Description: Small nucleolar RNA R44/J54/Z268 family: a 100-nucleotide RNA from Carex littledalei. Rfam 15.1 lists 1,168 matches to the family in 228 species. Rfam classes the family as a C/D-box small nucleolar RNA. The match comes from Rfam's covariance-model search (61 bits). Gene Ontology terms of the family: nucleolus and RNA processing. The base pairs follow the family's consensus structure, which was predicted with PFOLD.
[Rfam]
RNA sequence: UGUGCAAGUGAUGAGUACAAAGUAGACAGAGACAUCAGCACUCCUUUUGGAAUUCCAAAAGGGGAAUGUCGACUCUAAUUGGGAAUCUCUCUGAUGCCUU
Numbered sequence: 001u002g003u004g005c006a007a008g009u010g011a012u013g014a015g016u017a018c019a020a021a022g023u024a025g026a027c028a029g030a031g032a033c034a035u036c037a038g039c040a041c042u043c044c045u046u047u048u049g050g051a052a053u054u055c056c057a058a059a060a061g062g063g064g065a066a067u068g069u070c071g072a073c074u075c076u077a078a079u080u081g082g083g084a085a086u087c088u089c090u091c092u093g094a095u096g097c098c099u100u
Stems, first nucleotide, its partner, number of pairs: 002099001004097003